[Rfam]
RNA sequence: AAUUUUCCUGAUAUACGAGAUUUAAAAUAAUAGUGCCCGAGUCAGACUGCGGAACCAUUCCUUAAUGCCUUCCUUCUGAGAAAAUG
Numbered sequence: 001a002a003u004u005u006u007c008c009u010g011a012u013a014u015a016c017g018a019g020a021u022u023u024a025a026a027a028u029a030a031u032a033g034u035g036c037c038c039g040a041g042u043c044a045g046a047c048u049g050c051g052g053a054a055c056c057a058u059u060c061c062u063u064a065a066u067g068c069c070u071u072c073c074u075u076c077u078g079a080g081a082a083a084a085u086g
Base pairs, nucleotide, nucleotide: 002085003084004083005082
RNA: Small nucleolar RNA U83B
Organism: Microcebus murinus